[Rfam]
RNA sequence: GGCAUGGCUCCAAAGGCAACUAUUCCGAAGGAAUCCAUUGCAAAAUGGUAGUACGAGGAAUAGAGUCCAGAGUUGUGUCGUCCGUUUCGAAAAACGG
Numbered sequence: 001g002g003c004a005u006g007g008c009u010c011c012a013a014a015g016g017c018a019a020c021u022a023u024u025c026c027g028a029a030g031g032a033a034u035c036c037a038u039u040g041c042a043a044a045a046u047g048g049u050a051g052u053a054c055g056a057g058g059a060a061u062a063g064a065g066u067c068c069a070g071a072g073u074u075g076u077g078u079c080g081u082c083c084g085u086u087u088c089g090a091a092a093a094a095c096g097g
Stems, first nucleotide, its partner, number of pairs: 001079010015068002020063007030054001035048005082097004
Archaeal large subunit ribosomal RNA: a 97-nucleotide part of an RNA from Methanococcus aeolicus. The base pairs follow the family's consensus structure, which is taken from published work. Rfam 15.1 lists 2,955 matches to the family in 1,139 species.